[Rfam]
RNA sequence: AUUCAUUGGAUGAGGGUGAGGCGUUCGAUUGAUUUCAUUCAAUCCGAGCCUCACAUUCAUCAAGGGUUCGU
Numbered sequence: 001a002u003u004c005a006u007u008g009g010a011u012g013a014g015g016g017u018g019a020g021g022c023g024u025u026c027g028a029u030u031g032a033u034u035u036c037a038u039u040c041a042a043u044c045c046g047a048g049c050c051u052c053a054c055a056u057u058c059a060u061c062a063a064g065g066g067u068u069c070g071u
Stems, first nucleotide, its partner, number of pairs: 004066001006064002009061006016054003020050003024047002027044006
MIR6151 microRNA precursor family: a 71-nucleotide sequence from Nicotiana sylvestris. The base pairs follow the family's consensus structure, which was predicted with RNAalifold. Gene Ontology terms of the family: miRNA-mediated post-transcriptional gene silencing and RISC complex.